[Rfam]
RNA sequence: GCCGAUGCAGCUGAUGACAUAACUUUUUUCCCCAUCAGAUCGACCCUGUUGAUCUAACUAGAUUUAAGCCAGUUUUAUCUGAUGCAUCGAC
Numbered sequence: 001g002c003c004g005a006u007g008c009a010g011c012u013g014a015u016g017a018c019a020u021a022a023c024u025u026u027u028u029u030c031c032c033c034a035u036c037a038g039a040u041c042g043a044c045c046c047u048g049u050u051g052a053u054c055u056a057a058c059u060a061g062a063u064u065u066a067a068g069c070c071a072g073u074u075u076u077a078u079c080u081g082a083u084g085c086a087u088c089g090a091c
Base pairs, nucleotide, nucleotide: 001091003089004088005087006086007085008084009083

Overview:
The record is a 91-nucleotide RNA sequence from Sciurus vulgaris, which matches "Small nucleolar SNORD12/SNORD106" in Rfam. The literature on the family includes a 2001 paper in EMBO J by Huttenhofer et al., "RNomics: an experimental approach that identifies 201 candidates for novel, small, non-messenger RNAs in mouse". Its Rfam clan is "SNORD12 clan". A search with the family's covariance model found it, with a score of 95 bits.